[Rfam]
RNA: ZMP/ZTP riboswitch aptamer (pfl RNA motif)
RNA sequence: CAGAUCAUGUGUAACUGGCGUAGCAUGGGAAACCAUGAGGGAGCACAUGAGGUAAUGAUAAGCCGCACGCCUGGGCAAAGUAU
Numbered sequence: 001c002a003g004a005u006c007a008u009g010u011g012u013a014a015c016u017g018g019c020g021u022a023g024c025a026u027g028g029g030a031a032a033c034c035a036u037g038a039g040g041g042a043g044c045a046c047a048u049g050a051g052g053u054a055a056u057g058a059u060a061a062g063c064c065g066c067a068c069g070c071c072u073g074g075g076c077a078a079a080g081u082a083u
Stems, first nucleotide, its partner, number of pairs: 005050008015040002017071005025036004062076003